[Rfam]
A member of the RNA family "Mammalian CPEB3 ribozyme" from Alligator mississippiensis, 80 nucleotides long. Rfam links the family to the GO term RNA nuclease activity. A search with the family's covariance model found it, with a score of 53 bits.
RNA sequence: AGAGCUUACAAGUUGGAGGCCCUAGGAUAAGUGCUCAUGCCACAGCCCUGUCAGAUUCCAGUGAAUCUGCGAAUUCUGAU
Numbered sequence: 001a002g003a004g005c006u007u008a009c010a011a012g013u014u015g016g017a018g019g020c021c022c023u024a025g026g027a028u029a030a031g032u033g034c035u036c037a038u039g040c041c042a043c044a045g046c047c048c049u050g051u052c053a054g055a056u057u058c059c060a061g062u063g064a065a066u067c068u069g070c071g072a073a074u075u076c077u078g079a080u
Stems, first nucleotide, its partner, number of pairs: 016048001018047003024080001027077001029075002031043003052069007
Dot-bracket structure: ...............(.(((...[..[.[[(((.......))).))))...(((((((....)))))))....]].]..]